[Rfam]
RNA sequence: AGUUGACACAAAGCGCCGGGCCACGCGGGUGACAGCCGCGAGGGUGACGAGGAGAGGAAUCAUCGAAAAAUUCGGCGGAUGUUUCUCCGGCUGAAGCAGGCCAGGCGGCCUGCGGGGCUAUACCAGCCGCAGAGAGGGGCAAAAAACGGCAGCAAUACCGUAACAGAUCCCCUCAAAGGAAGCCA
Numbered sequence: 001a002g003u004u005g006a007c008a009c010a011a012a013g014c015g016c017c018g019g020g021c022c023a024c025g026c027g028g029g030u031g032a033c034a035g036c037c038g039c040g041a042g043g044g045u046g047a048c049g050a051g052g053a054g055a056g057g058a059a060u061c062a063u064c065g066a067a068a069a070a071u072u073c074g075g076c077g078g079a080u081g082u083u084u085c086u087c088c089g090g091c092u093g094a095a096g097c098a099g100g101c102c103a104g105g106c107g108g109c110c111u112g113c114g115g116g117g118c119u120a121u122a123c124c125a126g127c128c129g130c131a132g133a134g135a136g137g138g139g140c141a142a143a144a145a146a147c148g149g150c151a152g153c154a155a156u157a158c159c160g161u162a163a164c165a166g167a168u169c170c171c172c173u174c175a176a177a178g179g180a181a182g183c184c185a
Base pairs, nucleotide, nucleotide: 020045021044022043024040025039026038028036054087055086056085057084058083063075064074065073066072088129089128090127091126092125093124134174135173136172137171138170146161147160148159149158151156

The family of this 185-nucleotide sequence from Faecalibacterium sp. CAG:82 is "glmS glucosamine-6-phosphate activated ribozyme aptamer". Rfam links the family to the GO terms regulation of gene expression and catalytic activity. NCBI's taxonomy places the organism under Bacteria, Bacillota, Eubacteriales, Oscillospiraceae, Faecalibacterium. It scores 71 bits against the family's covariance model. It is annotated as a riboswitch. For this family Rfam cites "Evidence for preorganization of the glmS ribozyme ligand binding pocket" (Hampel and Tinsley, Biochemistry, 2006).